[Rfam]
RNA sequence: UGGUGCCCAACGUGGGGCUUGAGCACGGGGGAUCCAGUGAAGGACGCUGUUCGAGUGUUCGGCAGAAAGGAAAAGAAUAGAGGGAACGACGUGGGAACCUGCUGUGUCUGCACCCCUCGGGUAAGUGAACGGUGAUUAUGGGUCAAGCAUUGAGCCAAGAUAUGAUGUUCAUUGAAGGACUAGGAAAGGCUAUCAAGGCACGAGGAGUAAAGGUAAAAAUUAAGCAUUUGUGUCAGUAUUUUGAUUAUAUUAAGGAAGUUUGCCCUU
Numbered sequence: 001u002g003g004u005g006c007c008c009a010a011c012g013u014g015g016g017g018c019u020u021g022a023g024c025a026c027g028g029g030g031g032a033u034c035c036a037g038u039g040a041a042g043g044a045c046g047c048u049g050u051u052c053g054a055g056u057g058u059u060c061g062g063c064a065g066a067a068a069g070g071a072a073a074a075g076a077a078u079a080g081a082g083g084g085a086a087c088g089a090c091g092u093g094g095g096a097a098c099c100u101g102c103u104g105u106g107u108c109u110g111c112a113c114c115c116c117u118c119g120g121g122u123a124a125g126u127g128a129a130c131g132g133u134g135a136u137u138a139u140g141g142g143u144c145a146a147g148c149a150u151u152g153a154g155c156c157a158a159g160a161u162a163u164g165a166u167g168u169u170c171a172u173u174g175a176a177g178g179a180c181u182a183g184g185a186a187a188g189g190c191u192a193u194c195a196a197g198g199c200a201c202g203a204g205g206a207g208u209a210a211a212g213g214u215a216a217a218a219a220u221u222a223a224g225c226a227u228u229u230g231u232g233u234c235a236g237u238a239u240u241u242u243g244a245u246u247a248u249a250u251u252a253a254g255g256a257a258g259u260u261u262g263c264c265c266u267u
Stems, first nucleotide, its partner, number of pairs: 006031003012026003035049004080118002082115002087110001090106005126145003130142001133140002152193001154190003201243005207237002211229004252267004
Mason-Pfizer monkey virus packaging signal: a 267-nucleotide RNA sequence from Molossus molossus. The family's RNA type in Rfam is cis-regulatory element. From the family's description: This family represents a group of sequences that are related to the Mason-Pfizer monkey virus (MPMV) packaging signal. The packaging signal is located in the 5' UTR and is required for specific RNA encapsidation. NCBI's taxonomy places the organism under Eukaryota, Gnathostomata, Eutheria, Yangochiroptera, Molossus.